[Rfam]
The record is a 335-nucleotide part of an RNA from Gemmata obscuriglobus, which matches "Bacterial large subunit ribosomal RNA" in Rfam. Taxonomically the source falls in Gemmata (Bacteria, Planctomycetota, Planctomycetia, Gemmatales). The family's consensus secondary structure is taken from published work.
RNA sequence: CGAGAGAACGCUCGUGAAGGAACUCUGCAAGUUAAACCCGUAACUUCGGGAAAAGGGUUGCCCACGCGAGUGGGCCGCAGUGAAAAGGUUCUGGCGACUGUUUACUAAAAACACAGGUCUGUGCGAAGGCGUAAGCCGCGGUAUACAGACUGACGCCUGCCCGGUGCUGGUAAGUUAAGGGAGAGGGUUAGCCGCAAGGCGAAGCUCGCAACCGAAGCUCCAGUAAACGGCGGCCGUAACUAUGACGGUCCUAAGGUAGCGAAGUUCCUUGUCGGGUAAGUUCCGACCUGCAUGAAUGGCGUAACGACCGGAACACUGUCUCCACGAGCGACUCG
Numbered sequence: 001c002g003a004g005a006g007a008a009c010g011c012u013c014g015u016g017a018a019g020g021a022a023c024u025c026u027g028c029a030a031g032u033u034a035a036a037c038c039c040g041u042a043a044c045u046u047c048g049g050g051a052a053a054a055g056g057g058u059u060g061c062c063c064a065c066g067c068g069a070g071u072g073g074g075c076c077g078c079a080g081u082g083a084a085a086a087g088g089u090u091c092u093g094g095c096g097a098c099u100g101u102u103u104a105c106u107a108a109a110a111a112c113a114c115a116g117g118u119c120u121g122u123g124c125g126a127a128g129g130c131g132u133a134a135g136c137c138g139c140g141g142u143a144u145a146c147a148g149a150c151u152g153a154c155g156c157c158u159g160c161c162c163g164g165u166g167c168u169g170g171u172a173a174g175u176u177a178a179g180g181g182a183g184a185g186g187g188u189u190a191g192c193c194g195c196a197a198g199g200c201g202a203a204g205c206u207c208g209c210a211a212c213c214g215a216a217g218c219u220c221c222a223g224u225a226a227a228c229g230g231c232g233g234c235c236g237u238a239a240c241u242a243u244g245a246c247g248g249u250c251c252u253a254a255g256g257u258a259g260c261g262a263a264g265u266u267c268c269u270u271g272u273c274g275g276g277u278a279a280g281u282u283c284c285g286a287c288c289u290g291c292a293u294g295a296a297u298g299g300c301g302u303a304a305c306g307a308c309c310g311g312a313a314c315a316c317u318g319u320c321u322c323c324a325c326g327a328g329c330g331a332c333u334c335g
Stems, first nucleotide, its partner, number of pairs: 001335004009330008018321003035059005044049001060075006076080001088314007095306002099113003116151008124141001128137003154301004159231003164228002166224005173219003179213002183209001185207004191200002232250006251255001261288001271287006